About this RNA
A member of the RNA family "Small nucleolar RNA U19" from Rhamnella rubrinervis, 136 nucleotides long. The organism belongs to Rhamnella, within Eukaryota. The match comes from Rfam's covariance-model search (79 bits). It is annotated as an H/ACA-box small nucleolar RNA. Gene Ontology terms of the family: RNA processing and nucleolus.
RNA sequence: UAAUGGCUUAGUUAGGGGGCAGAAAUCGAAAUCCGAUUCGAAUUCGAGUCGUUUUGAUUCGGUCCGAAUCGAAGGCCUUUUUGAGGGGACUCUCUCAGUUGCUCAUGGUUUGUCCUCCAAGCAGCCUUCGACAUUC
Numbered sequence: 001u002a003a004u005g006g007c008u009u010a011g012u013u014a015g016g017g018g019g020c021a022g023a024a025a026u027c028g029a030a031a032u033c034c035g036a037u038u039c040g041a042a043u044u045c046g047a048g049u050c051g052u053u054u055u056g057a058u059u060c061g062g063u064c065c066g067a068a069u070c071g072a073a074g075g076c077c078u079u080u081u082u083g084a085g086g087g088g089a090c091u092c093u094c095u096c097a098g099u100u101g102c103u104c105a106u107g108g109u110u111u112g113u114c115c116u117c118c119a120a121g122c123a124g125c126c127u128u129c130g131a132c133a134u135u136c
Stems, first nucleotide, its partner, number of pairs: 004021002007018003037062001039061002044057005070130007080121004085117006